[Rfam]
RNA sequence: AUAUACCCAAACAACUUGGAGUUGCAGGUAGGCGGCAAGUGAGUGAAUCCCCAUGAGCAUAGACAGGCUAUGUGAUUGGGGUGAAAGAAGGUAGCCACCCCCCCUGCAGCUUCAAGUAGGAAGGG
Numbered sequence: 001a002u003a004u005a006c007c008c009a010a011a012c013a014a015c016u017u018g019g020a021g022u023u024g025c026a027g028g029u030a031g032g033c034g035g036c037a038a039g040u041g042a043g044u045g046a047a048u049c050c051c052c053a054u055g056a057g058c059a060u061a062g063a064c065a066g067g068c069u070a071u072g073u074g075a076u077u078g079g080g081g082u083g084a085a086a087g088a089a090g091g092u093a094g095c096c097a098c099c100c101c102c103c104c105u106g107c108a109g110c111u112u113c114a115a116g117u118a119g120g121a122a123g124g125g
Base pairs, nucleotide, nucleotide: 002124004122006120007119014117015116016115017114018113019112020111021110022109023108024107025106026105027104028103034096035095036094037082040079042077043076044075
RNA: Vibrio RNA AS5